Shown here is a 315-nucleotide RNA from Aspergillus oryzae, a member of the family "A. fumigatus sRNA Afu_309". The family's RNA type in Rfam is small RNA. Rfam's curators put it in the seed alignment.
RNA sequence: CUUUUUCGAACACACACGGAUCUGUGUCCAGCGAUCCUGAGCGUGGAGGCUUGUCUUCUGCGUCUCGGUUGAUUACUGGACAGUUCGACGACUUAAGGAGCCAUCACAUUCAUGGAUGGUCGAUUAUUUCCGGUCGACAGAUCUCAGAUUAAAGGUCGACAUUGGGUGUUCGCUCUGGUCUUGAGCUCCCUUCCUUUCGGGGUUGGUGAGCUCGGCUGGAGAGCCUGGUGCUCGGCGGCGUCAUAUUCCUACUCCCUUUACCGAUUUGGCCGUCGGCCCAUGAGGUUAGGGAAAAACCAUGGCCAGCCAACAUAC
Numbered sequence: 001c002u003u004u005u006u007c008g009a010a011c012a013c014a015c016a017c018g019g020a021u022c023u024g025u026g027u028c029c030a031g032c033g034a035u036c037c038u039g040a041g042c043g044u045g046g047a048g049g050c051u052u053g054u055c056u057u058c059u060g061c062g063u064c065u066c067g068g069u070u071g072a073u074u075a076c077u078g079g080a081c082a083g084u085u086c087g088a089c090g091a092c093u094u095a096a097g098g099a100g101c102c103a104u105c106a107c108a109u110u111c112a113u114g115g116a117u118g119g120u121c122g123a124u125u126a127u128u129u130c131c132g133g134u135c136g137a138c139a140g141a142u143c144u145c146a147g148a149u150u151a152a153a154g155g156u157c158g159a160c161a162u163u164g165g166g167u168g169u170u171c172g173c174u175c176u177g178g179u180c181u182u183g184a185g186c187u188c189c190c191u192u193c194c195u196u197u198c199g200g201g202g203u204u205g206g207u208g209a210g211c212u213c214g215g216c217u218g219g220a221g222a223g224c225c226u227g228g229u230g231c232u233c234g235g236c237g238g239c240g241u242c243a244u245a246u247u248c249c250u251a252c253u254c255c256c257u258u259u260a261c262c263g264a265u266u267u268g269g270c271c272g273u274c275g276g277c278c279c280a281u282g283a284g285g286u287u288a289g290g291g292a293a294a295a296a297c298c299a300u301g302g303c304c305a306g307c308c309a310a311c312a313u314a315c
Stems, first nucleotide, its partner, number of pairs: 018144008026081006033074004037068005042062002045058005089136005096125002100120003155232001157230001161229006177217004183213006189206002237308003240303005253292005260286003268278004